[Rfam]
Nucleotides: 143
Stems, first nucleotide, its partner, number of pairs: 003137001011129003015125002019059011033046004064080004084109011110120002
Number, partner (000 for none) and nucleotide at each position: 001000u002000a003137g004000u005000u006000g007000c008000c009000a010000u011129a012128g013127c014000u015125c016124c017000g018000a019059g020058u021057u022056u023055g024054a025053c026052g027051g028050g029049c030000u031000a032000a033046g034045u035044u036043c037000c038000g039000a040000g041000u042000g043036g044035a045034a046033u047000a048000g049029g050028c051027u052026u053025g054024u055023c056022a057021a058020a059019c060000c061000u062000g063000u064080g065079g066078u067077c068000g069000a070000u071000g072000u073000u074000g075000a076000u077067g078066a079065c080064c081000c082000g083000a084109g085108g086107g087106u088105g089104g090103g091102a092101u093100u094099g095000g096000a097000a098000a099094u100093g101092a102091u103090c104089u105088u106087g107086c108085c109084u110120c111119c112000c113000g114000u115000g116000u117000u118000u119111g120110g121000a122000a123000a124016g125015g126000u127013g128012u129011u130000c131000c132000a133000u134000g135000g136000c137003u138000c139000a140000a141000u142000u143000u